[Rfam]
The family of this 85-nucleotide RNA from Salsuginibacillus halophilus is "Group II catalytic intron D1-D4-1". From the family's description: Group II introns are found in rRNA, tRNA and mRNA of organelles in fungi, plants and protists, and also in mRNA in bacteria. The match comes from Rfam's covariance-model search (70 bits). The source organism's lineage runs through Bacteria, Bacillati, Bacillota, Bacillaceae and Salsuginibacillus. Rfam 15.1 lists 2,508 matches to the family in 1,144 species. A reference for the family is Bonen and Vogel (2001), "The ins and outs of group II introns", Trends Genet. Rfam links the family to the GO term Group II intron splicing.
RNA sequence: CAACCGGUCUCAAGAGAGACCGCUGAACGGUCAGAAGUCAGCAGAAGCCAUAGUACCCGGUCUUCCGGAUAGAUCGGGAAAGGGC
Numbered sequence: 001c002a003a004c005c006g007g008u009c010u011c012a013a014g015a016g017a018g019a020c021c022g023c024u025g026a027a028c029g030g031u032c033a034g035a036a037g038u039c040a041g042c043a044g045a046a047g048c049c050a051u052a053g054u055a056c057c058c059g060g061u062c063u064u065c066c067g068g069a070u071a072g073a074u075c076g077g078g079a080a081a082g083g084g085c
Stems, first nucleotide, its partner, number of pairs: 001025002005022007038045002047085003056078008